A member of the RNA family "Small nucleolar RNA snoR77" from Phtheirospermum japonicum, 124 nucleotides long. The family's consensus secondary structure was predicted with WAR.
RNA sequence: AGGCAACCCCCUUUUUCUUUGAAGUUGAGACAGGUGGUGUUAAUCUGCUCAUAAAUCAUUCAACUUUUGCUCUUCAGACUUGCUGAUUAUUUCUUGAAGCUGGUCUAGUAAGCUUAAGGAUAUA
Numbered sequence: 001a002g003g004c005a006a007c008c009c010c011c012u013u014u015u016u017c018u019u020u021g022a023a024g025u026u027g028a029g030a031c032a033g034g035u036g037g038u039g040u041u042a043a044u045c046u047g048c049u050c051a052u053a054a055a056u057c058a059u060u061c062a063a064c065u066u067u068u069g070c071u072c073u074u075c076a077g078a079c080u081u082g083c084u085g086a087u088u089a090u091u092u093c094u095u096g097a098a099g100c101u102g103g104u105c106u107a108g109u110a111a112g113c114u115u116a117a118g119g120a121u122a123u124a
Stems, first nucleotide, its partner, number of pairs: 002041004007037002009034002013030001015029003064118003069113003076106005082100003